[Rfam]
RNA sequence: CGGUCGGGUCGCGACUGGCGCCACGGGAGGAAGCGACCUCCGGGAAGCGACACCACGAGUCCCGCCGCGCGCCUGGGCACCCUUC
Numbered sequence: 001c002g003g004u005c006g007g008g009u010c011g012c013g014a015c016u017g018g019c020g021c022c023a024c025g026g027g028a029g030g031a032a033g034c035g036a037c038c039u040c041c042g043g044g045a046a047g048c049g050a051c052a053c054c055a056c057g058a059g060u061c062c063c064g065c066c067g068c069g070c071g072c073c074u075g076g077g078c079a080c081c082c083u084u085c
Stems, first nucleotide, its partner, number of pairs: 003056002006053001008051005015044002017073005027040004064078003
Dot-bracket structure: ..((.(.(((((..(([[[[[.....((((......))))..))..))))).).)).......(((..]]]]]..))).......

The family of this 85-nucleotide RNA sequence from Baekduia soli is "ZMP/ZTP riboswitch aptamer (pfl RNA motif)". Taxonomically the source falls in Baekduia (Bacteria, Actinomycetota, Thermoleophilia, Solirubrobacterales). The base pairs follow the family's consensus structure, which is taken from published work.